[Rfam]
Rfam assigns this 187-nucleotide RNA sequence from Halanaerobium saccharolyticum to the family "Lysine riboswitch aptamer".

RNA sequence: UGAUGAGGUAGAGGUGCAGAAAAGAUCAGUAACUUUUGAGUUUAUCCAGAACCAGGAUUUUAAAUUAAAAGUGAAAGGUUUUUCUGCCGAAGUGGUUUUUUUAUUGGUUCAAAAAUACCACUGGGGCUGUAUAUAAAAUAUGCAGAACUGUCAUAAUAAUUUUUUAUUAUGUUGUGCUAUCUCAUGU
Numbered sequence: 001u002g003a004u005g006a007g008g009u010a011g012a013g014g015u016g017c018a019g020a021a022a023a024g025a026u027c028a029g030u031a032a033c034u035u036u037u038g039a040g041u042u043u044a045u046c047c048a049g050a051a052c053c054a055g056g057a058u059u060u061u062a063a064a065u066u067a068a069a070a071g072u073g074a075a076a077g078g079u080u081u082u083u084c085u086g087c088c089g090a091a092g093u094g095g096u097u098u099u100u101u102u103a104u105u106g107g108u109u110c111a112a113a114a115a116u117a118c119c120a121c122u123g124g125g126g127c128u129g130u131a132u133a134u135a136a137a138a139u140a141u142g143c144a145g146a147a148c149u150g151u152c153a154u155a156a157u158a159a160u161u162u163u164u165u166a167u168u169a170u171g172u173u174g175u176g177c178u179a180u181c182u183c184a185u186g187u
Base pairs, nucleotide, nucleotide: 006182007181008180009179010178011177016087017086018085019084020083021082022081023080024079032072033071034070035069036068037067038066039065091122092121093120094119095118096117098115099114100113101112102111123149124148127145128144129143130142131141132140133139152171153170154169155168156167157166

Background:
The family's consensus secondary structure is taken from published work.